The family of this 262-nucleotide sequence from Clostridium acidisoli is "T-box leader". The family's consensus secondary structure is taken from published work. From the family's description: Uncharged tRNA acts as the effector for transcription antitermination of genes in the T-box leader family. T-boxes are found upstream of many aminoacyl-tRNA synthetase genes and some amino acid biosynthetic genes usually in Gram-positive bacteria. Gene Ontology term of the family: tRNA binding. On this family, see Grundy et al., J Bacteriol 1994: "Interaction between the acceptor end of tRNA and the T box stimulates antitermination in the Bacillus subtilis tyrS gene: a new role for the discriminator base". Lineage of the source: Bacteria > Bacillota > Clostridia > Clostridiaceae > Clostridium acidisoli.
RNA sequence: AUUAAAGCAUUGAAGAGAAUAAGUAAAUUUUAUGGAGCUUAAAAGAGAGUUAUCGGCUGGUGAGAGAUGCAAAGCGAAAUUAAAUUGAAUACGUCUCAGAGCAGCUCUCCGAAAGAUAAUAUCUAUUAGGCAGUUGACGAUUUUGCACACGUUAUAGUGCUAGGGUAUAAACAAAUUUGUUUUGUCGUACCUGAAAAGUUAAUUAUCGUGAGGUAAUUAUAAACCAAGGUGGUAACACGUGAUUAGUACUCUCGUCCUUUAU
Numbered sequence: 001a002u003u004a005a006a007g008c009a010u011u012g013a014a015g016a017g018a019a020u021a022a023g024u025a026a027a028u029u030u031u032a033u034g035g036a037g038c039u040u041a042a043a044a045g046a047g048a049g050u051u052a053u054c055g056g057c058u059g060g061u062g063a064g065a066g067a068u069g070c071a072a073a074g075c076g077a078a079a080u081u082a083a084a085u086u087g088a089a090u091a092c093g094u095c096u097c098a099g100a101g102c103a104g105c106u107c108u109c110c111g112a113a114a115g116a117u118a119a120u121a122u123c124u125a126u127u128a129g130g131c132a133g134u135u136g137a138c139g140a141u142u143u144u145g146c147a148c149a150c151g152u153u154a155u156a157g158u159g160c161u162a163g164g165g166u167a168u169a170a171a172c173a174a175a176u177u178u179g180u181u182u183u184g185u186c187g188u189a190c191c192u193g194a195a196a197a198g199u200u201a202a203u204u205a206u207c208g209u210g211a212g213g214u215a216a217u218u219a220u221a222a223a224c225c226a227a228g229g230u231g232g233u234a235a236c237a238c239g240u241g242a243u244u245a246g247u248a249c250u251c252u253c254g255u256c257c258u259u260u261a262u
Stems, first nucleotide, its partner, number of pairs: 007102002015097004026086005038074003051069004105136001107133002110130001138151002200219006226259004237255003241251001